[Rfam]
RNA sequence: AGGAGGAACAACCCCAGUGGCAGUGGCCAACUCUGGAAACCUGGAUUCAGCCCCCACAGUAACUAGGGAGCUCUCUGUCUAUAGGUCCUGGAGGCUCCGGGGCGGG
Numbered sequence: 001a002g003g004a005g006g007a008a009c010a011a012c013c014c015c016a017g018u019g020g021c022a023g024u025g026g027c028c029a030a031c032u033c034u035g036g037a038a039a040c041c042u043g044g045a046u047u048c049a050g051c052c053c054c055c056a057c058a059g060u061a062a063c064u065a066g067g068g069a070g071c072u073c074u075c076u077g078u079c080u081a082u083a084g085g086u087c088c089u090g091g092a093g094g095c096u097c098c099g100g101g102g103c104g105g106g
Base pairs, nucleotide, nucleotide: 002098003097004096005095009090010089013085014084019079020078021077022076023075025074026073029072031070032069033068034067037064041059042058043057
RNA: mir-8834 microRNA precursor family